RNA sequence: GAUUGACAAGAUGCCAUACCAUCUUUCGGGACUGACGGCAAUGGAGAACUACCCUUUUUAGUAUUACUGAUCACUC
Numbered sequence: 001g002a003u004u005g006a007c008a009a010g011a012u013g014c015c016a017u018a019c020c021a022u023c024u025u026u027c028g029g030g031a032c033u034g035a036c037g038g039c040a041a042u043g044g045a046g047a048a049c050u051a052c053c054c055u056u057u058u059u060a061g062u063a064u065u066a067c068u069g070a071u072c073a074c075u076c
Stems, first nucleotide, its partner, number of pairs: 001076002004073003